The family of this 77-nucleotide RNA sequence from Altererythrobacter sp. B11 is "Makes More Granules Regulator RNA (mmgR)". Rfam classes the family as a small RNA. It scores 54 bits against the family's covariance model. NCBI's taxonomy places the organism under Bacteria, Pseudomonadota, Sphingomonadales, Erythrobacteraceae, Altererythrobacter. SuhB later renamed mmgR (makes more granules regulator) was a putative non-coding RNA found multiple times in the Agrobacterium tumefaciens genome and related alpha-proteobacteria. Other non-coding RNAs uncovered in the same analysis include: speF, ybhL, metA, and serC.Several studies inSinorhizobium meliloti showed that suhB element is indeed a non-coding RNA:firstly it was detected on Northern blot and called Sm8RNA, secondly in an RNAseq study referred to as SmelC689.The mutant phenotype's (strain lacking the small RNA) cytoplasm contains higher content of polyhydroxybutyrate (PBH)storage granules than wild type strain.

RNA sequence: AGAGCAGGCCUUUUCAGGCAUCCUCUCCCAAGACUUUCAAGCCCGGCUGGCAACGGCCGGGCUUUUUUUCUGCCUGC
Number, nucleotide and partner (000 for none) at each position: 001a000002g000003a000004g000005c000006a000007g000008g019009c018010c017011u016012u000013u000014u000015c000016a011017g010018g009019c008020a000021u000022c000023c000024u000025c000026u000027c000028c000029c000030a000031a000032g000033a000034c000035u000036u000037u000038c000039a000040a000041g062042c061043c060044c059045g058046g057047c056048u055049g054050g000051c000052a000053a000054c049055g048056g047057c046058c045059g044060g043061g042062c041063u000064u000065u000066u000067u000068u000069u000070c000071u000072g000073c000074c000075u000076g000077c000